[Rfam]
RNA sequence: AGCACCAGAAGAGGCGCGGAAACUAGGCAGUUUAUCUGAAGAAGCACAAUUCUAACGAUGAUAAAUCAGGGAGUUUACCGCCGAGGGUAAUAACCUUUGUGGCAGGUUAUGGCUCGGUUGACCAGGUUGAAUCCUGGCGACUGUCACCAUUGUCAAGUGAAGUGAAUCAAAUGAUGACACAGUUGGCAAUAAGGGUGGAGAGCUUCUGGCGAA
Numbered sequence: 001a002g003c004a005c006c007a008g009a010a011g012a013g014g015c016g017c018g019g020a021a022a023c024u025a026g027g028c029a030g031u032u033u034a035u036c037u038g039a040a041g042a043a044g045c046a047c048a049a050u051u052c053u054a055a056c057g058a059u060g061a062u063a064a065a066u067c068a069g070g071g072a073g074u075u076u077a078c079c080g081c082c083g084a085g086g087g088u089a090a091u092a093a094c095c096u097u098u099g100u101g102g103c104a105g106g107u108u109a110u111g112g113c114u115c116g117g118u119u120g121a122c123c124a125g126g127u128u129g130a131a132u133c134c135u136g137g138c139g140a141c142u143g144u145c146a147c148c149a150u151u152g153u154c155a156a157g158u159g160a161a162g163u164g165a166a167u168c169a170a171a172u173g174a175u176g177a178c179a180c181a182g183u184u185g186g187c188a189a190u191a192a193g194g195g196u197g198g199a200g201a202g203c204u205u206c207u208g209g210c211g212a213a
Stems, first nucleotide, its partner, number of pairs: 006208006016081004021076001022074003030066007085115004090110007116142004122137005144198005150192004

Lysine riboswitch aptamer: a 213-nucleotide sequence from Endozoicomonas sp. G2_1. It scores 78 bits against the family's covariance model.